[Rfam]
Source information
The family of this 60-nucleotide sequence is "pemK RNA". The sequence is in the family's curated seed alignment. Pairs were carried over by alignment from the consensus structure, which is taken from published work.
RNA sequence: AUAAUGAUACUUCCGGUGACGGCUGUCCCACAGGAAUGGGCAGAGGUGAGAGUCCUAUGU
Numbered sequence: 001a002u003a004a005u006g007a008u009a010c011u012u013c014c015g016g017u018g019a020c021g022g023c024u025g026u027c028c029c030a031c032a033g034g035a036a037u038g039g040g041c042a043g044a045g046g047u048g049a050g051a052g053u054c055c056u057a058u059g060u
Stems, first nucleotide, its partner, number of pairs: 012057001013022003023043003027039002044056003